The family of this 55-nucleotide RNA sequence from Mamastrovirus hominis is "ribosomal frameshift site". Lineage of the source: Viruses > Riboviria > Pisuviricota > Stelpaviricetes > Mamastrovirus hominis. Rfam classes the family as a frameshift element. Rfam links the family to the GO term viral translational frameshifting. On this family, see Jiang et al., Proc Natl Acad Sci U S A 1993: "RNA sequence of astrovirus: distinctive genomic organization and a putative retrovirus-like ribosomal frameshifting signal that directs the viral replicase synthesis".
[Rfam]
RNA sequence: GGGCCCCAGAAGACCAGGGGGCCCAAAACUACCACUCACUAGAUGCAUGGCAGCU
Dot-bracket structure: (((((((.[....[[[.))))))).......................]]]....]